[Rfam]
About this RNA
Pseudomonas sRNA P9: a 71-nucleotide sequence from Pseudomonas mangiferae. The family's consensus secondary structure was predicted with RNAalifold. Lineage of the source: Bacteria > Pseudomonadati > Pseudomonadota > Gammaproteobacteria > Pseudomonas. About the family: This small RNA (sRNA) was computationally identified in the genome of the opportunistic pathogen Pseudomonas aeruginosa and its expression verified by northern blot analysis. P9 appears to be conserved in several Pseudomonas species in addition to Bordetella spp. In both Pseudomonas and Bordetella spp P9 appears to be located upstream of a predicted threonine dehydratase gene. P9 has a predicted Rho independent terminator at the 3' end but the function of P9 is unknown. This sRNA also appears to be present in the Betaproteobacteria (Burkholderia and Ralstonia species). On this family, see Livny et al., Nucleic Acids Res 2006: "Identification of 17 Pseudomonas aeruginosa sRNAs and prediction of sRNA-encoding genes in 10 diverse pathogens using the bioinformatic tool sRNAPredict2".
RNA sequence: AUCAUUAUUACCGCCAUUCCAGCAGUGGCGGGUUAGCCUACGUUUCCCCACCCGCCCUCGAGGCGGGUUCU
Numbered sequence: 001a002u003c004a005u006u007a008u009u010a011c012c013g014c015c016a017u018u019c020c021a022g023c024a025g026u027g028g029c030g031g032g033u034u035a036g037c038c039u040a041c042g043u044u045u046c047c048c049c050a051c052c053c054g055c056c057c058u059c060g061a062g063g064c065g066g067g068u069u070c071u
Stems, first nucleotide, its partner, number of pairs: 011031007050068007

It is annotated as a non-coding RNA gene.